Overview:
A member of the RNA family "Bacillaceae-1 RNA" from Pullulanibacillus camelliae, 67 nucleotides long. The family's RNA type in Rfam is small RNA. The match comes from Rfam's covariance-model search (44 bits).
RNA sequence: CAUUAAGGCACUUCGACUAAAAACAUCACAUCCAUGUGAUCACGCCGAAGCCAGCACGUCCUGUGCG
Numbered sequence: 001c002a003u004u005a006a007g008g009c010a011c012u013u014c015g016a017c018u019a020a021a022a023a024c025a026u027c028a029c030a031u032c033c034a035u036g037u038g039a040u041c042a043c044g045c046c047g048a049a050g051c052c053a054g055c056a057c058g059u060c061c062u063g064u065g066c067g
Base pairs, nucleotide, nucleotide: 011050012049013048014047015046017044025040026039027038028037029036054066055065056064057063